About this RNA: This 109-nucleotide RNA from Citrobacter freundii belongs to the Rfam family "Enterobacteria rnk leader". For this family Rfam cites "Premature terminator analysis sheds light on a hidden world of bacterial transcriptional attenuation" (Naville and Gautheret, Genome Biol, 2010). NCBI's taxonomy places the organism under Bacteria, Pseudomonadota, Gammaproteobacteria, Citrobacter, Citrobacter freundii complex. Its family is annotated with regulation of gene expression in the Gene Ontology.
[Rfam]
RNA sequence: GUUAUUGAUCGCCUGAAUGUGAACUAAAUCACUUCAAACCUGGGGUAAGUCUCAGUAUCAUCAUAAAAGCUAAACCCUUGCCGCCUGACGGUGAGGGUUUUCUUUUGGG
Numbered sequence: 001g002u003u004a005u006u007g008a009u010c011g012c013c014u015g016a017a018u019g020u021g022a023a024c025u026a027a028a029u030c031a032c033u034u035c036a037a038a039c040c041u042g043g044g045g046u047a048a049g050u051c052u053c054a055g056u057a058u059c060a061u062c063a064u065a066a067a068a069g070c071u072a073a074a075c076c077c078u079u080g081c082c083g084c085c086u087g088a089c090g091g092u093g094a095g096g097g098u099u100u101u102c103u104u105u106u107g108g109g
Stems, first nucleotide, its partner, number of pairs: 015035003019032004072100012